[Rfam]
RNA: Plastid-psbN 5UTR RNA
Organism: Zostera marina
RNA sequence: CGUAACUCCCAUAAAAGGGGUAGUCCCCAAUCCUGGCGCGACUUUACCAUAUUCCGAAUUU
Numbered sequence: 001c002g003u004a005a006c007u008c009c010c011a012u013a014a015a016a017g018g019g020g021u022a023g024u025c026c027c028c029a030a031u032c033c034u035g036g037c038g039c040g041a042c043u044u045u046a047c048c049a050u051a052u053u054c055c056g057a058a059u060u061u
Base pairs, nucleotide, nucleotide: 017045018044019043020042021041023039024038026036027035